[Rfam]
RNA sequence: GAGUCUAACGCACGCGCGAGUCAAAGGGUGUCCUCGAGCCCCCACGGCGCAAUGAAGGUGAAGGCCGGCGCUCGCCGGUCCAGGUGGGAUCCCCCCGCCCCGGCGGGGGGCGCACCACCGGCCCGUCUCGCCCGCACCGCCGGGCAGGUGGAGCUAGAGCGUGUGCGAUGGUACCCGAAAGAUGGUGAACUAUGCCUGGGCAGGGCGAAGCCAGAGGAAACUCUGGUGGAGGCCCGCAGCGGUCCUGACGUGCAAAUCGGUCGUCCGACCUGGGUAUAGGGGCGAAAGACUAAUCGAACCAUCUAGUAGCUGGUU
Numbered sequence: 001g002a003g004u005c006u007a008a009c010g011c012a013c014g015c016g017c018g019a020g021u022c023a024a025a026g027g028g029u030g031u032c033c034u035c036g037a038g039c040c041c042c043c044a045c046g047g048c049g050c051a052a053u054g055a056a057g058g059u060g061a062a063g064g065c066c067g068g069c070g071c072u073c074g075c076c077g078g079u080c081c082a083g084g085u086g087g088g089a090u091c092c093c094c095c096c097g098c099c100c101c102g103g104c105g106g107g108g109g110g111c112g113c114a115c116c117a118c119c120g121g122c123c124c125g126u127c128u129c130g131c132c133c134g135c136a137c138c139g140c141c142g143g144g145c146a147g148g149u150g151g152a153g154c155u156a157g158a159g160c161g162u163g164u165g166c167g168a169u170g171g172u173a174c175c176c177g178a179a180a181g182a183u184g185g186u187g188a189a190c191u192a193u194g195c196c197u198g199g200g201c202a203g204g205g206c207g208a209a210g211c212c213a214g215a216g217g218a219a220a221c222u223c224u225g226g227u228g229g230a231g232g233c234c235c236g237c238a239g240c241g242g243u244c245c246u247g248a249c250g251u252g253c254a255a256a257u258c259g260g261u262c263g264u265c266c267g268a269c270c271u272g273g274g275u276a277u278a279g280g281g282g283c284g285a286a287a288g289a290c291u292a293a294u295c296g297a298a299c300c301a302u303c304u305a306g307u308a309g310c311u312g313g314u315u
Stems, first nucleotide, its partner, number of pairs: 005171003009167009020048003026041004052059002083119005091110006121154002123151006132142001174313002177310001181303006190279011201267001203235004210227007239264004244260002247258002281291002
Dot-bracket structure: ....(((.(((((((((..(((...((((........))))....)))...((....)).......................(((((...((((((........))))))....))))).((((((((...(.........)...)))))).))....))))))))).)))..((.(...((((((...((((((((((((.((((...(((((((....)))))))....))))...((((.((.((........))))))))..).))))))))))).((.......))......))))))......).))..